[Rfam]
RNA sequence: GUCGGGUUCGGGAUGAACUGAUUGAUCCGCUCGCCGAUCACGGCCCAGGUGCGCUUGCCGUCGUGGAGCAUCUGCACGCCGCGACGCUUGAAUUCCUU
Numbered sequence: 001g002u003c004g005g006g007u008u009c010g011g012g013a014u015g016a017a018c019u020g021a022u023u024g025a026u027c028c029g030c031u032c033g034c035c036g037a038u039c040a041c042g043g044c045c046c047a048g049g050u051g052c053g054c055u056u057g058c059c060g061u062c063g064u065g066g067a068g069c070a071u072c073u074g075c076a077c078g079c080c081g082c083g084a085c086g087c088u089u090g091a092a093u094u095c096c097u098u
Stems, first nucleotide, its partner, number of pairs: 006039001008037004014033002018029001020027002043054002046051001079090001081088001
Rfam assigns this 98-nucleotide RNA from Mycobacterium simulans to the family "Mycobacterium sRNA Ms_AS-1". Pairs were carried over by alignment from the consensus structure. For this family Rfam cites "Identification of small RNAs in Mycobacterium smegmatis using heterologous Hfq" (Li et al., RNA, 2013).